[Rfam]
The record is a 305-nucleotide sequence from Jaculus jaculus, which matches "Mason-Pfizer monkey virus packaging signal" in Rfam.
This family represents a group of sequences that are related to the Mason-Pfizer monkey virus (MPMV) packaging signal. The packaging signal is located in the 5' UTR and is required for specific RNA encapsidation.
For this family Rfam cites "Mutational analysis of the predicted secondary RNA structure of the Mason-Pfizer monkey virus packaging signal" (Mustafa et al., Virus Res, 2004).
By type it is a cis-regulatory element.
RNA sequence: UGGCGUCCAAACGUGGGGCUUGAGGUACGAAAUGUGACCUGGACGUCACUCAAGUGGACGUCUGUCACCCCCAUUGGAUUGCCACCUCAUCGGUGAGUGAAGAUCCACAUGCAGAUCACCGCAGGAGUGCCCGCCUGUGAUACAGAUCUGGAGAGGUAAGAAAAGUGACGCAAUUAUGGGACAAGCAUUAAGUAAGCAUGAAUUGUUUGUUGAAGGGCUUAAAACUUCUCUCAAGACAUGAGGAAUGCGGGUUAAGAAAAACGAUUUAGUGAAAUUCUUUGUCCUUUUAGAAGAUGCCUGUCCCU
Numbered sequence: 001u002g003g004c005g006u007c008c009a010a011a012c013g014u015g016g017g018g019c020u021u022g023a024g025g026u027a028c029g030a031a032a033u034g035u036g037a038c039c040u041g042g043a044c045g046u047c048a049c050u051c052a053a054g055u056g057g058a059c060g061u062c063u064g065u066c067a068c069c070c071c072c073a074u075u076g077g078a079u080u081g082c083c084a085c086c087u088c089a090u091c092g093g094u095g096a097g098u099g100a101a102g103a104u105c106c107a108c109a110u111g112c113a114g115a116u117c118a119c120c121g122c123a124g125g126a127g128u129g130c131c132c133g134c135c136u137g138u139g140a141u142a143c144a145g146a147u148c149u150g151g152a153g154a155g156g157u158a159a160g161a162a163a164a165g166u167g168a169c170g171c172a173a174u175u176a177u178g179g180g181a182c183a184a185g186c187a188u189u190a191a192g193u194a195a196g197c198a199u200g201a202a203u204u205g206u207u208u209g210u211u212g213a214a215g216g217g218c219u220u221a222a223a224a225c226u227u228c229u230c231u232c233a234a235g236a237c238a239u240g241a242g243g244a245a246u247g248c249g250g251g252u253u254a255a256g257a258a259a260a261a262c263g264a265u266u267u268a269g270u271g272a273a274a275u276u277c278u279u280u281g282u283c284c285u286u287u288u289a290g291a292a293g294a295u296g297c298c299u300g301u302c303c304c305u
Stems, first nucleotide, its partner, number of pairs: 006043003013028003048065002053061001103157003110152001116146002120139005165182002169180001171178002190231001192228001194226001239281008249267005290305001293302003